[Rfam]
RNA sequence: GGCUACUACCUUUUACUCGGAACGUCCGGCACGUACCUGCCGGUGAAAGGAUGAAUUU
Numbered sequence: 001g002g003c004u005a006c007u008a009c010c011u012u013u014u015a016c017u018c019g020g021a022a023c024g025u026c027c028g029g030c031a032c033g034u035a036c037c038u039g040c041c042g043g044u045g046a047a048a049g050g051a052u053g054a055a056u057u058u
Stems, first nucleotide, its partner, number of pairs: 009050007026043006
Rfam assigns this 58-nucleotide sequence from Mobiluncus mulieris to the family "msiK RNA".
It is annotated as a cis-regulatory element.
The organism belongs to Mobiluncus mulieris, within Bacteria.
The family's consensus secondary structure is taken from published work.
The family has 120 seed sequences and 1,374 matches in Rfam 15.1.